[Rfam]
Shown here is a 132-nucleotide RNA sequence from Castor canadensis, a member of the family "Small nucleolar RNA SNORA3/SNORA45 family".
The members of this family belong to the H/ACA class of snoRNAs which are thought to guide the sites of modification of uridines to pseudouridines.
Taxonomically the source falls in Castor (Eukaryota, Bilateria, Amniota, Theria).
By type it is an H/ACA-box small nucleolar RNA.
Clan: SNORA3 clan.
Nucleotides: 132
Base pairs, nucleotide, nucleotide: 002058003057004056005055006054007052008051009050012047013046015045016044017043018042019041020040023037024036025035026034069124070123071122072121073120074119075118077116081114082113083112084111085110086109088107089106090105091104093103094102
Number, partner (000 for none) and nucleotide at each position: 001000c002058c003057c004056g005055a006054g007052a008051c009050u010000a011000g012047a013046g014000u015045c016044a017043c018042a019041u020040c021000c022000u023037g024036a025035c026034a027000c028000a029000g030000c031000a032000c033000u034026u035025g036024u037023c038000c039000c040020g041019g042018u043017g044016u045015g046013c047012u048000a049000g050009a051008g052007u053000u054006c055005u056004c057003g058002g059000a060000g061000a062000g063000a064000a065000u066000c067000u068000g069124c070123u071122g072121g073120u074119c075118u076000u077116g078000a079000u080000u081114c082113a083112c084111u085110g086109g087000u088107g089106g090105g091104g092000g093103g094102u095000g096000a097000u098000c099000a100000g101000u102094g103093c104091c105090c106089c107088u108000g109086u110085u111084a112083g113082u114081g115000c116077c117000c118075a119074g120073a121072u122071c123070a124069g125000a126000a127000a128000c129000a130000g131000g132000c